[Rfam]
RNA sequence: GGCACUACAGGUGGCUUUGGGCCGAAAGUACUGACGACAGACCAGAAGCGGGAAGCCGUGACAGUGAUGUGCAAAGCGACAGGUCUGUCGCAACGGCGUGCCUGCAGGCUGACAGGUU
Numbered sequence: 001g002g003c004a005c006u007a008c009a010g011g012u013g014g015c016u017u018u019g020g021g022c023c024g025a026a027a028g029u030a031c032u033g034a035c036g037a038c039a040g041a042c043c044a045g046a047a048g049c050g051g052g053a054a055g056c057c058g059u060g061a062c063a064g065u066g067a068u069g070u071g072c073a074a075a076g077c078g079a080c081a082g083g084u085c086u087g088u089c090g091c092a093a094c095g096g097c098g099u100g101c102c103u104g105c106a107g108g109c110u111g112a113c114a115g116g117u118u
Stems, first nucleotide, its partner, number of pairs: 035090009048059004065078002
This 118-nucleotide RNA from Dickeya dadantii belongs to the Rfam family "Insertion sequence IS1222 ribosomal frameshifting element". The literature on the family includes a 2004 paper in J Bacteriol by Mejlhede et al., "-1 frameshifting at a CGA AAG hexanucleotide site is required for transposition of insertion sequence IS1222". This family represents the insertion sequence IS1222 ribosomal frameshifting element. The element stimulates frameshifting which is known to be required for transposition. Rfam classes the family as a frameshift element.